Notes:
The family of this 127-nucleotide RNA sequence from Zizania palustris is "mir-172 microRNA precursor family". It scores 73 bits against the family's covariance model. The literature on the family includes a 2004 paper in Mol Cell by Jones-Rhoades and Bartel, "Computational Identification of Plant MicroRNAs and Their Targets, Including a Stress-Induced miRNA". NCBI's taxonomy places the organism under Eukaryota, Mesangiospermae, Liliopsida, Petrosaviidae, Zizania.

RNA sequence: GCGUUUGCUGAUGCAGCAUCAUCAAGAUUCUCAUCACAUAACUCUACAUAAUAAAAGGCCACCGCCGGCCUCUCGUUUAGGAUGAACAGCUCGAUGUGAAUCUUGAUGGUGCUGCACCUGCAAGCAC
Numbered sequence: 001g002c003g004u005u006u007g008c009u010g011a012u013g014c015a016g017c018a019u020c021a022u023c024a025a026g027a028u029u030c031u032c033a034u035c036a037c038a039u040a041a042c043u044c045u046a047c048a049u050a051a052u053a054a055a056a057g058g059c060c061a062c063c064g065c066c067g068g069c070c071u072c073u074c075g076u077u078u079a080g081g082a083u084g085a086a087c088a089g090c091u092c093g094a095u096g097u098g099a100a101u102c103u104u105g106a107u108g109g110u111g112c113u114g115c116a117c118c119u120g121c122a123a124g125c126a127c
Base pairs, nucleotide, nucleotide: 010118012116013115014114015113016112017111018110019109020108021107022106023105024104025103026102027101028100029099030098032096033095034094035093